[Rfam]
The family of this 75-nucleotide RNA from Myotis brandtii is "mir-9223 microRNA precursor family". Gene Ontology terms of the family: miRNA-mediated post-transcriptional gene silencing and RISC complex.
RNA sequence: GGCAGUUCUCGGAUGAUGCACCUGGAAUCGGGCUCCCUCCUCUCUGGUUCCAGGGUGUGUCACCUGAGAACCGCC
Numbered sequence: 001g002g003c004a005g006u007u008c009u010c011g012g013a014u015g016a017u018g019c020a021c022c023u024g025g026a027a028u029c030g031g032g033c034u035c036c037c038u039c040c041u042c043u044c045u046g047g048u049u050c051c052a053g054g055g056u057g058u059g060u061c062a063c064c065u066g067a068g069a070a071c072c073g074c075c
Base pairs, nucleotide, nucleotide: 002074003073005071006070007069008068009067010066011065012064014062015061016060017059019057020056021055022054023053024051025050026049027048028047029046030045031044032043
The source organism's lineage runs through Eukaryota, Teleostomi, Mammalia, Boreoeutheria and Myotis.